Annotation: SAM (S-adenosyl methionine) riboswitch aptamer: a 115-nucleotide RNA sequence from Microlunatus sagamiharensis. For this family Rfam cites "The aptamer core of SAM-IV riboswitches mimics the ligand-binding site of SAM-I riboswitches" (Weinberg et al., RNA, 2008). Its Rfam clan is "SAM clan". Lineage of the source: Bacteria > Actinomycetota > Propionibacteriales > Propionibacteriaceae > Microlunatus.

RNA sequence: UGUCACGAGCGCCAGCGUCAAGCCCCGGCUUGCUGGCCGGCAACCCUCCUCCGCGGUGGGGUGCCCCGGGUGACGACACGGCUGGUGCCGGUUCCGGCACCGGCAAGCGCGGCCC
Number, nucleotide and partner (000 for none) at each position: 001u078002g077003u076004c075005a000006c000007g000008a000009g038010c000011g037012c036013c035014a034015g033016c032017g000018u000019c000020a000021a030022g029023c000024c000025c000026c000027g000028g000029c022030u021031u000032g016033c015034u014035g013036g012037c011038c009039g065040g064041c063042a000043a000044c061045c060046c059047u000048c056049c055050u000051c000052c000053g000054c000055g049056g048057u000058g000059g046060g045061g044062u000063g041064c040065c039066c000067c000068g000069g000070g000071u000072g000073a000074c000075g004076a003077c002078a001079c000080g000081g104082c103083u102084g101085g100086u099087g098088c097089c096090g095091g000092u000093u000094c000095c090096g089097g088098c087099a086100c085101c084102g083103g082104c081105a000106a000107g000108c000109g000110c000111g000112g000113c000114c000115c000